RNA sequence: UUCUUUUUCCAUGAGAGGAGCUUAGGCGUCGUUAUUUUCAGCGUAAUAUCUGAUACGUCCCCCACAUGUGGGACUUCGAUAUUACACUGAUUUAGAGAACAUGACGGAGGGUUAGGGACUUGCUCCACCUCUGCCAAGGGUCGGCCUGGUGAUGAACCUCCAGGAUUGGCCCACUCCCC
Numbered sequence: 001u002u003c004u005u006u007u008u009c010c011a012u013g014a015g016a017g018g019a020g021c022u023u024a025g026g027c028g029u030c031g032u033u034a035u036u037u038u039c040a041g042c043g044u045a046a047u048a049u050c051u052g053a054u055a056c057g058u059c060c061c062c063c064a065c066a067u068g069u070g071g072g073a074c075u076u077c078g079a080u081a082u083u084a085c086a087c088u089g090a091u092u093u094a095g096a097g098a099a100c101a102u103g104a105c106g107g108a109g110g111g112u113u114a115g116g117g118a119c120u121u122g123c124u125c126c127a128c129c130u131c132u133g134c135c136a137a138g139g140g141u142c143g144g145c146c147u148g149g150u151g152a153u154g155a156a157c158c159u160c161c162a163g164g165a166u167u168g169g170c171c172c173a174c175u176c177c178c179c
Stems, first nucleotide, its partner, number of pairs: 003020005036055001038053004057074005063068001103135001105133006115126003138172006145164005

Shown here is a 179-nucleotide RNA sequence from Pomacea canaliculata, a member of the family "U2 spliceosomal RNA". The family has 208 seed sequences and 71,512 matches in Rfam 15.1. From the family's description: U2 is a small nuclear RNA (snRNA) component of the spliceosome (involved in pre-mRNA splicing). Complementary binding between U2 snRNA (in an area lying towards the 5' end but 3' to hairpin I) and the branchpoint sequence (BPS) of the intron results the bulging out of an unpaired adenosine, on the BPS, which initiates a nucleophilic attack at the intronic 5' splice site, thus starting the first of two transesterification reactions that mediate splicing. Its family is annotated with pre-mRNA branch point binding, mRNA branch site recognition and U2 snRNP in the Gene Ontology. Its Rfam clan is "U2 clan".